[Rfam]
RNA sequence: GGCCAGUUAGCUCAGUUGUUUAGAGCAUGGUGCUAAUAACGCCAAGGUCGCAGUUUCAAACCUGUACGGGCUA
Numbered sequence: 001g002g003c004c005a006g007u008u009a010g011c012u013c014a015g016u017u018g019u020u021u022a023g024a025g026c027a028u029g030g031u032g033c034u035a036a037u038a039a040c041g042c043c044a045a046g047g048u049c050g051c052a053g054u055u056u057c058a059a060a061c062c063u064g065u066a067c068g069g070g071c072u073a
Stems, first nucleotide, its partner, number of pairs: 001072004006067002010026004028044005050065004